[Rfam]
RNA sequence: AGAGCAGUGAUGAGCCCAACAUGCCAUCUGAGUGUGUGCGUGAAAACCCGGAGACUGUUUCUCAGCUG
Numbered sequence: 001a002g003a004g005c006a007g008u009g010a011u012g013a014g015c016c017c018a019a020c021a022u023g024c025c026a027u028c029u030g031a032g033u034g035u036g037u038g039c040g041u042g043a044a045a046a047c048c049c050g051g052a053g054a055c056u057g058u059u060u061c062u063c064a065g066c067u068g
Stems, first nucleotide, its partner, number of pairs: 005068004

This 68-nucleotide RNA from Oryctolagus cuniculus belongs to the Rfam family "Small nucleolar RNA SNORD95". Lineage of the source: Eukaryota > Eumetazoa > Teleostomi > Euteleostomi > Oryctolagus. The family's consensus secondary structure was predicted with PFOLD. A reference for the family is Vitali et al. (2003), "Identification of 13 novel human modification guide RNAs", Nucleic Acids Res. Rfam links the family to the GO terms nucleolus and RNA processing.